Shown here is a 97-nucleotide sequence from Eubacterium pyruvativorans, a member of the family "pemK RNA". It is annotated as a cis-regulatory element. It scores 55 bits against the family's covariance model.
RNA sequence: ACAAUGAUACUCCUGUCUAGCCACAGCCCCGGAUACUGAUCCGGUCACGCAAUGGGGACAGCCCGGAGAGAUCCUCGGGGGAGUUGGAAACUCGUGA
Numbered sequence: 001a002c003a004a005u006g007a008u009a010c011u012c013c014u015g016u017c018u019a020g021c022c023a024c025a026g027c028c029c030c031g032g033a034u035a036c037u038g039a040u041c042c043g044g045u046c047a048c049g050c051a052a053u054g055g056g057g058a059c060a061g062c063c064c065g066g067a068g069a070g071a072u073c074c075u076c077g078g079g080g081g082a083g084u085u086g087g088a089a090a091c092u093c094g095u096g097a
Stems, first nucleotide, its partner, number of pairs: 012094001013061006062080003066076003081093003